[Rfam]
RNA sequence: AAAAAGUGGAAACCAGCUACCACUAAAAAAAACGGGGCCUUACCGAAAAGCCAUAAGAGUAGGAGAUUA
Number, nucleotide and partner (000 for none) at each position: 001a000002a000003a000004a000005a000006g023007u022008g021009g020010a000011a000012a000013c000014c000015a000016g000017c000018u000019a000020c009021c008022a007023c006024u000025a000026a000027a000028a000029a000030a000031a000032a000033c000034g000035g000036g052037g051038c050039c000040u000041u000042a000043c063044c062045g000046a000047a000048a000049a000050g038051c037052c036053a000054u000055a000056a000057g000058a000059g000060u000061a000062g044063g043064a000065g000066a000067u000068u000069a000

The family of this 69-nucleotide RNA from Flavobacterium sp. ALD4 is "DUF805 RNA".
By type it is a cis-regulatory element.
The base pairs follow the family's consensus structure, which is taken from published work.